The record is a 91-nucleotide RNA sequence from Nyssa sinensis, which matches "Small nucleolar RNA Z102/R77" in Rfam. The family has 9 seed sequences and 1,346 matches in Rfam 15.1. Pairs were carried over by alignment from the consensus structure, which was predicted with PFOLD. By type it is a C/D-box small nucleolar RNA. Its family is annotated with RNA processing and nucleolus in the Gene Ontology.

RNA sequence: GAAUGAUGUGAUGAUUGACAUUUGUUUCCCUAUUGGUUUGAUUGCCGGCAUGAUGGCAACGACCUUAUGUAUUAGCUCUAUCUGAUCAUUC
Numbered sequence: 001g002a003a004u005g006a007u008g009u010g011a012u013g014a015u016u017g018a019c020a021u022u023u024g025u026u027u028c029c030c031u032a033u034u035g036g037u038u039u040g041a042u043u044g045c046c047g048g049c050a051u052g053a054u055g056g057c058a059a060c061g062a063c064c065u066u067a068u069g070u071a072u073u074a075g076c077u078c079u080a081u082c083u084g085a086u087c088a089u090u091c
Base pairs, nucleotide, nucleotide: 002090003089004088005087040060043058044057045056046055